RNA sequence: UAAAUAUAUGGAGAUGAAGCUCUCCUGAAAAGUAUUUUUUCAAAUCGCUUGUUAUGCUAAUGGCUUCUACGAUGUU
Number, nucleotide and partner (000 for none) at each position: 001u000002a000003a000004a000005u000006a000007u000008a000009u000010g025011g024012a023013g022014a000015u000016g067017a066018a065019g064020c063021u062022c013023u012024c011025c010026u000027g000028a000029a000030a000031a000032g000033u000034a000035u000036u000037u000038u000039u000040u000041c000042a000043a000044a000045u000046c000047g057048c056049u000050u000051g000052u000053u000054a000055u000056g048057c047058u000059a000060a000061u000062g021063g020064c019065u018066u017067c016068u000069a000070c000071g000072a000073u000074g000075u000076u000
Source information: A member of the RNA family "Fluoride riboswitch aptamer (crcB RNA motif)" from Hathewaya histolytica, 76 nucleotides long. The family has 289 seed sequences and 2,293 matches in Rfam 15.1.